[Rfam]
RNA sequence: CUGUCGAGGCCACCUUCCCUCCCAAAAUCGCUCCUCGAGAGCGUCUACCCCGGUACCUGACACGGCCGGAGAGA
Numbered sequence: 001c002u003g004u005c006g007a008g009g010c011c012a013c014c015u016u017c018c019c020u021c022c023c024a025a026a027a028u029c030g031c032u033c034c035u036c037g038a039g040a041g042c043g044u045c046u047a048c049c050c051c052g053g054u055a056c057c058u059g060a061c062a063c064g065g066c067c068g069g070a071g072a073g074a
Base pairs, nucleotide, nucleotide: 001041002040004038005037006036007035008034009033044074045073046072048071050069051068052067053066054065
This 74-nucleotide RNA from Nocardioides insulae belongs to the Rfam family "L17-Actino-Proteobacteria ribosomal protein leader". It is one of the family's seed sequences. Pairs were carried over by alignment from the consensus structure, which is taken from published work. Lineage of the source: Bacteria > Actinomycetota > Actinomycetes > Nocardioidaceae > Nocardioides insulae. For this family Rfam cites "Discovery of 20 novel ribosomal leader candidates in bacteria and archaea" (Eckert and Weinberg, BMC Microbiol, 2020).